This 84-nucleotide RNA from Nesidiocoris tenuis belongs to the Rfam family "mir-263 microRNA precursor family". A search with the family's covariance model found it, with a score of 54 bits. Taxonomically the source falls in Nesidiocoris (Eukaryota, Ecdysozoa, Pterygota, Heteroptera). The family's consensus secondary structure was predicted with RNAalifold.
RNA sequence: CUCUCCUGGGAAUGGCACUGAAAGAAUUCACGGGCUUUACGGGUUGAUUCCCCCCGUGGUUCUGCAGUGCCAUCCUCAGUGGAG
Numbered sequence: 001c002u003c004u005c006c007u008g009g010g011a012a013u014g015g016c017a018c019u020g021a022a023a024g025a026a027u028u029c030a031c032g033g034g035c036u037u038u039a040c041g042g043g044u045u046g047a048u049u050c051c052c053c054c055c056g057u058g059g060u061u062c063u064g065c066a067g068u069g070c071c072a073u074c075c076u077c078a079g080u081g082g083a084g
Stems, first nucleotide, its partner, number of pairs: 002083003006079004012073006019066002024062003028059006